[Rfam]
RNA: FMN riboswitch aptamer (RFN element)
Organism: Peptococcaceae bacterium CEB3
RNA sequence: AUGAAUCUUCGGGGCAGGGUGAAAUUCCCGACCGGCGGUGAUGAUUGCCUGCGCAAUCCAGCCCGCGACUCGGUGCGGCCGUUAGACGCACCGACUGACUUGGUGAGAAUCCAAGGCCGACGGUACAGUCCGGAUGGAAGAAGGUAAAA
Numbered sequence: 001a002u003g004a005a006u007c008u009u010c011g012g013g014g015c016a017g018g019g020u021g022a023a024a025u026u027c028c029c030g031a032c033c034g035g036c037g038g039u040g041a042u043g044a045u046u047g048c049c050u051g052c053g054c055a056a057u058c059c060a061g062c063c064c065g066c067g068a069c070u071c072g073g074u075g076c077g078g079c080c081g082u083u084a085g086a087c088g089c090a091c092c093g094a095c096u097g098a099c100u101u102g103g104u105g106a107g108a109a110u111c112c113a114a115g116g117c118c119g120a121c122g123g124u125a126c127a128g129u130c131c132g133g134a135u136g137g138a139a140g141a142a143g144g145u146a147a148a149a
Stems, first nucleotide, its partner, number of pairs: 005145006017029003031129002033119002035066004061117002070094004099115005121132003
Dot-bracket structure: ....((((((......(((.......))).[[((((((......................[[))))...((((.................))))....(((((.......)))))]])).(((....]]))).......))))))....